[Rfam]
RNA sequence: AUCGUCCAGGAUCGCCGUAACGGCAAGAGUGCGGCCGAAAACCUCCAGGCGGCAUGACGCGAUGGCGCUUCUGGUCUUUGACCACGGAUGUACUGGCACUGGCCGUUGAGGCGCCCAGGAGAAGGUCGGGGAGUUCCCGGCCUUUUUCGUU
Numbered sequence: 001a002u003c004g005u006c007c008a009g010g011a012u013c014g015c016c017g018u019a020a021c022g023g024c025a026a027g028a029g030u031g032c033g034g035c036c037g038a039a040a041a042c043c044u045c046c047a048g049g050c051g052g053c054a055u056g057a058c059g060c061g062a063u064g065g066c067g068c069u070u071c072u073g074g075u076c077u078u079u080g081a082c083c084a085c086g087g088a089u090g091u092a093c094u095g096g097c098a099c100u101g102g103c104c105g106u107u108g109a110g111g112c113g114c115c116c117a118g119g120a121g122a123a124g125g126u127c128g129g130g131g132a133g134u135u136c137c138c139g140g141c142c143u144u145u146u147u148c149g150u151u
Stems, first nucleotide, its partner, number of pairs: 003051004064115007073104004079098002082096003118148012131135001
RNA: Alphaproteobacterial sRNA ar35
Organism: Pseudaminobacter soli